[Rfam]
RNA sequence: ACUGGAACAGGAUGGACCAGAGCAGAAGCGUGCAUAGUGCAGUCCUGUCCGAUUCCAACAAAUCUGUGAAUUCUGCU
Numbered sequence: 001a002c003u004g005g006a007a008c009a010g011g012a013u014g015g016a017c018c019a020g021a022g023c024a025g026a027a028g029c030g031u032g033c034a035u036a037g038u039g040c041a042g043u044c045c046u047g048u049c050c051g052a053u054u055c056c057a058a059c060a061a062a063u064c065u066g067u068g069a070a071u072u073c074u075g076c077u
Stems, first nucleotide, its partner, number of pairs: 014045004021077007028040003049066001051064004